About this RNA: Pestivirus 3' UTR SLI: a 60-nucleotide sequence from Orthopestivirus bovis. Pairs were carried over by alignment from the consensus structure. The literature on the family includes a 2005 paper in J Virol by Pankraz et al., "Essential and nonessential elements in the 3' nontranslated region of Bovine viral diarrhea virus". The family's RNA type in Rfam is cis-regulatory element. NCBI's taxonomy places the organism under Viruses, Flasuviricetes, Pestiviridae, Orthopestivirus, Bovine viral diarrhea virus isolates and strains.
RNA sequence: AGCUGUAUGAGGGUAUACCCGACGUCUACAGUUGGACUAGGGAAGACCUCUAACAGCCCC
Numbered sequence: 001a002g003c004u005g006u007a008u009g010a011g012g013g014u015a016u017a018c019c020c021g022a023c024g025u026c027u028a029c030a031g032u033u034g035g036a037c038u039a040g041g042g043a044a045g046a047c048c049u050c051u052a053a054c055a056g057c058c059c060c
Stems, first nucleotide, its partner, number of pairs: 002057005009050001011049004018042003024037005